[Rfam]
RNA sequence: GCCUUUGUAAAACAGAGUUCCGGGCCUUUUGGAAGACCCAAUGGACAAUUUUUGGAAAGCAUUGCUAAUGCUA
Dot-bracket structure: .....................(((.(((....))).)))..................((((((...)))))).
RNA: SmY spliceosomal RNA
Organism: Bursaphelenchus xylophilus